The record is a 154-nucleotide sequence from Anaerobium acetethylicum, which matches "Clostridiales-1 RNA" in Rfam. Taxonomically the source falls in Anaerobium (Bacteria, Bacillati, Bacillota, Lachnospiraceae). The family's RNA type in Rfam is small RNA. It scores 121 bits against the family's covariance model. The base pairs follow the family's consensus structure, which is taken from published work.
RNA sequence: UGAUACCAGGGUCAAAAGGUCAUGUGUUUCAUGCUUGCAUGAAACAACAUUACUUUGGGACCCGCAAAACAUGAGAAAACAGCCCGAACAGGGCUAAUUUCGAAUGUUUUUAGGAUUGUGGGAGCACAAAGUGCGGAACAAUCCGUAGGUAUUA
Dot-bracket structure: (((((((..((((..(((((.((((..((((((....))))).)..)))).)))))..))))...(((((((..((((...((((.....))))...))))..)))))))..(((((((....((((...))))...)))))))...)))))))